[Rfam]
RNA: U7 small nuclear RNA
Organism: Cavia porcellus
RNA sequence: AAGUGUUACAGCUCUUUUAGAAUUUGUCUAGUAGGUUUUCUGGUGUUUGCCGGAAAACCCAU
Numbered sequence: 001a002a003g004u005g006u007u008a009c010a011g012c013u014c015u016u017u018u019a020g021a022a023u024u025u026g027u028c029u030a031g032u033a034g035g036u037u038u039u040c041u042g043g044u045g046u047u048u049g050c051c052g053g054a055a056a057a058c059c060c061a062u
Stems, first nucleotide, its partner, number of pairs: 034059011